RNA sequence: CCCGCCGUGCGACCGGCGGUAGCCUAGGAGCGCGUGCAUUGCUGGCAACGGCGUUGUGCGAAGCCGUUCCGAAAAAGUUGUCCGAAAGCAUGUAGCGCUGCGAAGCGCUGCCAUGGAGGCUCUGAGCAGCAACGGGGCUGAGACG
Numbered sequence: 001c002c003c004g005c006c007g008u009g010c011g012a013c014c015g016g017c018g019g020u021a022g023c024c025u026a027g028g029a030g031c032g033c034g035u036g037c038a039u040u041g042c043u044g045g046c047a048a049c050g051g052c053g054u055u056g057u058g059c060g061a062a063g064c065c066g067u068u069c070c071g072a073a074a075a076a077g078u079u080g081u082c083c084g085a086a087a088g089c090a091u092g093u094a095g096c097g098c099u100g101c102g103a104a105g106c107g108c109u110g111c112c113a114u115g116g117a118g119g120c121u122c123u124g125a126g127c128a129g130c131a132a133c134g135g136g137g138c139u140g141a142g143a144c145g
Stems, first nucleotide, its partner, number of pairs: 002019006028069005033060006040053005089115004098105002119138006